[Rfam]
RNA sequence: GCGUUCGUAGCUCAGCUGGAUAGAGCGACGGACUUCGAAUCCGUAGGUCGCAGGUUCGAGUCCUGCCGGACGCA
Numbered sequence: 001g002c003g004u005u006c007g008u009a010g011c012u013c014a015g016c017u018g019g020a021u022a023g024a025g026c027g028a029c030g031g032a033c034u035u036c037g038a039a040u041c042c043g044u045a046g047g048u049c050g051c052a053g054g055u056u057c058g059a060g061u062c063c064u065g066c067c068g069g070a071c072g073c074a
Base pairs, nucleotide, nucleotide: 001073002072003071004070005069006068007067010026011025012024013023028044029043030042031041032040050066051065052064053063054062